RNA sequence: GUUUUCGGGUAAUUACAGCAGCUCCAAGGAGUUGUUGAGGAAAGUCCAUGCUCUCACAAGCUGAGAUGCUUGUAGUGUUCGUGCUUAGCGAAAUCAUAAGCUAAGGUGCUCUUUAUUGAGCAACGGCAGCUAAAAAAGCUACGGCGUAAGCUAUGCUUGAGUAGGCUUGAAAGUGCCACAGUGACGAAGCGGCUUUAGAAAUAAAGUCGGUGGAACGGGUAAACCCCUCGAGAGAGCAACCCAAAUUCAGGUAGGGGCAUUCUUUUCAAGGAAAUGAACUAAGAAAAGAGACGGAGAUUUUCUCCGUAGACAGAUUAUUACCGUUGAUUUUUUCUCCUGAGAAAAAUCAAUACAGAACAUGGCUUAUAGAA
Numbered sequence: 001g002u003u004u005u006c007g008g009g010u011a012a013u014u015a016c017a018g019c020a021g022c023u024c025c026a027a028g029g030a031g032u033u034g035u036u037g038a039g040g041a042a043a044g045u046c047c048a049u050g051c052u053c054u055c056a057c058a059a060g061c062u063g064a065g066a067u068g069c070u071u072g073u074a075g076u077g078u079u080c081g082u083g084c085u086u087a088g089c090g091a092a093a094u095c096a097u098a099a100g101c102u103a104a105g106g107u108g109c110u111c112u113u114u115a116u117u118g119a120g121c122a123a124c125g126g127c128a129g130c131u132a133a134a135a136a137a138g139c140u141a142c143g144g145c146g147u148a149a150g151c152u153a154u155g156c157u158u159g160a161g162u163a164g165g166c167u168u169g170a171a172a173g174u175g176c177c178a179c180a181g182u183g184a185c186g187a188a189g190c191g192g193c194u195u196u197a198g199a200a201a202u203a204a205a206g207u208c209g210g211u212g213g214a215a216c217g218g219g220u221a222a223a224c225c226c227c228u229c230g231a232g233a234g235a236g237c238a239a240c241c242c243a244a245a246u247u248c249a250g251g252u253a254g255g256g257g258c259a260u261u262c263u264u265u266u267c268a269a270g271g272a273a274a275u276g277a278a279c280u281a282a283g284a285a286a287a288g289a290g291a292c293g294g295a296g297a298u299u300u301u302c303u304c305c306g307u308a309g310a311c312a313g314a315u316u317a318u319u320a321c322c323g324u325u326g327a328u329u330u331u332u333u334c335u336c337c338u339g340a341g342a343a344a345a346a347u348c349a350a351u352a353c354a355g356a357a358c359a360u361g362g363c364u365u366a367u368a369g370a371a
Stems, first nucleotide, its partner, number of pairs: 004371003007367001008322006016037006042365003046362005051236005056073006079231003083227001084105006106124001107122005125226002128167004136158004143152003173224002175220003190209008240256003260290007291307006324350009
RNA: Bacterial RNase P class B